Notes
Shown here is an 87-nucleotide sequence from Bacillus sp. FJAT-49711, a member of the family "BsrC". From the family's description: The 301 nucleotide sequence from Kouji Nakamura has been trimmed to a highly conserved ~85 nucleotide long core to form this family.
RNA sequence: AUAAUUCAAAACAACGAAAGCCCUUCCUCUCCCUCGUCCUUACGGUUCCUAGACCGUGCCAGUGGGAAUUGUCUUAGCAAACAAUGG
Numbered sequence: 001a002u003a004a005u006u007c008a009a010a011a012c013a014a015c016g017a018a019a020g021c022c023c024u025u026c027c028u029c030u031c032c033c034u035c036g037u038c039c040u041u042a043c044g045g046u047u048c049c050u051a052g053a054c055c056g057u058g059c060c061a062g063u064g065g066g067a068a069u070u071g072u073c074u075u076a077g078c079a080a081a082c083a084a085u086g087g
Base pairs, nucleotide, nucleotide: 034067035066039062040061041058042057043056044055045054046053047052
Background: On this family, see Saito et al., Gene 2008: "Novel small RNA-encoding genes in the intergenic regions of Bacillus subtilis". It is annotated as a small RNA. The base pairs follow the family's consensus structure, which was predicted with CMfinder. Taxonomically the source falls in Bacillus (Bacteria, Bacillota, Bacilli, Bacillaceae).